[Rfam]
RNA: permuted transfer-messenger RNA
RNA sequence: GGACAUAAACGCGCGCGUAAUAAGCGGAUCGGACCCGGGGGCGGUACCCGGCAGCUCCACCAAAACCACACGGGGCUGAAAUAGGAUCGACGAACGUCUAAAGGUGUUAGCUUUGUCUCGGCUGUCUGCCACCGUUAUCGGCGAAAACUGUACAAUUGCAAAUGACAAUCGUGCUCCAGUAGCAAUGGCUGCGUAA
Numbered sequence: 001g002g003a004c005a006u007a008a009a010c011g012c013g014c015g016c017g018u019a020a021u022a023a024g025c026g027g028a029u030c031g032g033a034c035c036c037g038g039g040g041g042c043g044g045u046a047c048c049c050g051g052c053a054g055c056u057c058c059a060c061c062a063a064a065a066c067c068a069c070a071c072g073g074g075g076c077u078g079a080a081a082u083a084g085g086a087u088c089g090a091c092g093a094a095c096g097u098c099u100a101a102a103g104g105u106g107u108u109a110g111c112u113u114u115g116u117c118u119c120g121g122c123u124g125u126c127u128g129c130c131a132c133c134g135u136u137a138u139c140g141g142c143g144a145a146a147a148c149u150g151u152a153c154a155a156u157u158g159c160a161a162a163u164g165a166c167a168a169u170c171g172u173g174c175u176c177c178a179g180u181a182g183c184a185a186u187g188g189c190u191g192c193g194u195a196a
Stems, first nucleotide, its partner, number of pairs: 001118005013107004025096002029093003035051005052078007119134003
Dot-bracket structure: (((((.......((((........((..(((...(((((.......)))))(((((((.............)))))))............))).)).......))))......)))))(((..........)))..............................................................